[Rfam]
The record is a 141-nucleotide RNA from Lamprotornis superbus, which matches "Small nucleolar RNA SNORA12" in Rfam. For this family Rfam cites "A novel experimental approach for systematic identification of box H/ACA snoRNAs from eukaryotes" (Gu et al., Nucleic Acids Res, 2005). Gene Ontology terms of the family: nucleolus and RNA processing. The match comes from Rfam's covariance-model search (46 bits). U108 belongs to the H/ACA family of snoRNAs. The sequence is predicted to guide the pseudouridylation of the U372 residue in the 28S rRNA subunit. However it has not been reported as a pseudouridylation site.
RNA sequence: UAUUGUGGUGGUUGCUGUGUGUGGCAGGUCUGUAAGUAUAUCAGAGCUGUAGCAGAACUACCACAGAGAUAAGAAAGGAGGUGGCUGUGCUGAGAACUUUAAAGCUUUGAGUUUUCAGCUCUCUGUCCACCUCCUACAGGA
Numbered sequence: 001u002a003u004u005g006u007g008g009u010g011g012u013u014g015c016u017g018u019g020u021g022u023g024g025c026a027g028g029u030c031u032g033u034a035a036g037u038a039u040a041u042c043a044g045a046g047c048u049g050u051a052g053c054a055g056a057a058c059u060a061c062c063a064c065a066g067a068g069a070u071a072a073g074a075a076a077g078g079a080g081g082u083g084g085c086u087g088u089g090c091u092g093a094g095a096a097c098u099u100u101a102a103a104g105c106u107u108u109g110a111g112u113u114u115u116c117a118g119c120u121c122u123c124u125g126u127c128c129a130c131c132u133c134c135u136a137c138a139g140g141a
Stems, first nucleotide, its partner, number of pairs: 005064007024050002027047001029045004077134006101126001103124002